[Rfam]
A member of the RNA family "tRNA" from Ensifer meliloti, 72 nucleotides long.
Its family is annotated with triplet codon-amino acid adaptor activity in the Gene Ontology.
About the family: Transfer RNA (tRNA) molecules are approximately 80 nucleotides in length.
The match comes from Rfam's covariance-model search (69 bits).
The family's RNA type in Rfam is transfer RNA.
RNA sequence: UCCCUGGUAGCUCAGCGGUAGAGCACUCGACUGUUAAUCGAUAGGUCGCCGGUUCGAAUCCGGCCCGGGGAG
Numbered sequence: 001u002c003c004c005u006g007g008u009a010g011c012u013c014a015g016c017g018g019u020a021g022a023g024c025a026c027u028c029g030a031c032u033g034u035u036a037a038u039c040g041a042u043a044g045g046u047c048g049c050c051g052g053u054u055c056g057a058a059u060c061c062g063g064c065c066c067g068g069g070g071a072g
Stems, first nucleotide, its partner, number of pairs: 001071007010024004027041004048064005